[Rfam]
RNA: FMN riboswitch aptamer (RFN element)
RNA sequence: AGCAAGUUUCAGGGAAGGUGCAAUUCCUUACUGGCGGUGACCUGCGGAGCCGGGAUUCAUAACGGCGGCCGCGGCAGCCCGCGACCCGCGCAAGCGGCUGAUCCGGUGGAAAUCCGGAGCCAACGGUCAAAGUCCGGAUGGAAGAAACGGAGC
Numbered sequence: 001a002g003c004a005a006g007u008u009u010c011a012g013g014g015a016a017g018g019u020g021c022a023a024u025u026c027c028u029u030a031c032u033g034g035c036g037g038u039g040a041c042c043u044g045c046g047g048a049g050c051c052g053g054g055a056u057u058c059a060u061a062a063c064g065g066c067g068g069c070c071g072c073g074g075c076a077g078c079c080c081g082c083g084a085c086c087c088g089c090g091c092a093a094g095c096g097g098c099u100g101a102u103c104c105g106g107u108g109g110a111a112a113u114c115c116g117g118a119g120c121c122a123a124c125g126g127u128c129a130a131a132g133u134c135c136g137g138a139u140g141g142a143a144g145a146a147a148c149g150g151a152g153c
Base pairs, nucleotide, nucleotide: 006148007147008146009145010144016028017027018026030133031132032122033121034082035081036080037079086097087096102118103117104116105115106114124136125135126134